[Rfam]
RNA sequence: UUGUGAAUAUUCUCACUCUUCUGAUUUUAUAAUAAUCAGGGCAGGCUAAACAUUUGAUAUAUUAAGACCAUGCAUAUGUCCCCAGACCUAGUUAUUUCCCUAGAUCUGGUAUUAUCAAUGCUGGUGAUAAAC
Numbered sequence: 001u002u003g004u005g006a007a008u009a010u011u012c013u014c015a016c017u018c019u020u021c022u023g024a025u026u027u028u029a030u031a032a033u034a035a036u037c038a039g040g041g042c043a044g045g046c047u048a049a050a051c052a053u054u055u056g057a058u059a060u061a062u063u064a065a066g067a068c069c070a071u072g073c074a075u076a077u078g079u080c081c082c083c084a085g086a087c088c089u090a091g092u093u094a095u096u097u098c099c100c101u102a103g104a105u106c107u108g109g110u111a112u113u114a115u116c117a118a119u120g121c122u123g124g125u126g127a128u129a130a131a132c
Base pairs, nucleotide, nucleotide: 004056005055016044017043019041020040021039022038023037024036025035026034067125068124069123070122072121073120082109083108084107085106086105088103089102090101091100
Shown here is a 132-nucleotide RNA sequence from Gulo gulo, a member of the family "Small nucleolar RNA SNORA72". A search with the family's covariance model found it, with a score of 139 bits. The base pairs follow the family's consensus structure, which was predicted with PFOLD. For this family Rfam cites "The family of box ACA small nucleolar RNAs is defined by an evolutionarily conserved secondary structure and ubiquitous sequence elements essential for RNA accumulation" (Ganot et al., Genes Dev, 1997). About the family: U72 is a member of the H/ACA class of snoRNAs. Taxonomically the source falls in Gulo (Eukaryota, Chordata, Gnathostomata, Amniota).